Pseudomonas sRNA P9: a 71-nucleotide RNA sequence from Pseudomonas sp. GV071. On this family, see Livny et al., Nucleic Acids Res 2006: "Identification of 17 Pseudomonas aeruginosa sRNAs and prediction of sRNA-encoding genes in 10 diverse pathogens using the bioinformatic tool sRNAPredict2". A search with the family's covariance model found it, with a score of 46 bits. About the family: This small RNA (sRNA) was computationally identified in the genome of the opportunistic pathogen Pseudomonas aeruginosa and its expression verified by northern blot analysis. P9 appears to be conserved in several Pseudomonas species in addition to Bordetella spp. In both Pseudomonas and Bordetella spp P9 appears to be located upstream of a predicted threonine dehydratase gene. P9 has a predicted Rho independent terminator at the 3' end but the function of P9 is unknown. Rfam classes the family as a non-coding RNA gene.
[Rfam]
RNA sequence: CAGAUUAUUACCACCGUCGACUAGACGGUGGGAACGCGCAGCGCGCUAAACCCGCCAACCAGGCGGGUUUU
Numbered sequence: 001c002a003g004a005u006u007a008u009u010a011c012c013a014c015c016g017u018c019g020a021c022u023a024g025a026c027g028g029u030g031g032g033a034a035c036g037c038g039c040a041g042c043g044c045g046c047u048a049a050a051c052c053c054g055c056c057a058a059c060c061a062g063g064c065g066g067g068u069u070u071u
Stems, first nucleotide, its partner, number of pairs: 011031007048070009